[Rfam]
RNA sequence: AUGAUGGCAAGGGGAGAGACUACAGUUUGUAGCGCCGAAGGAGCAAGCAGCGGGUAUGUGUGAAUCUCUCAGGCAAAAGAACUCUUGCUGGACG
Numbered sequence: 001a002u003g004a005u006g007g008c009a010a011g012g013g014g015a016g017a018g019a020c021u022a023c024a025g026u027u028u029g030u031a032g033c034g035c036c037g038a039a040g041g042a043g044c045a046a047g048c049a050g051c052g053g054g055u056a057u058g059u060g061u062g063a064a065u066c067u068c069u070c071a072g073g074c075a076a077a078a079g080a081a082c083u084c085u086u087g088c089u090g091g092a093c094g
Stems, first nucleotide, its partner, number of pairs: 006089008020032004034074003037070002041068003047061002
Dot-bracket structure: .....((((((((......((((.....)))).(((((..(((...((...........))....))))).))).......)))))))).....
RNA: Glycine riboswitch aptamer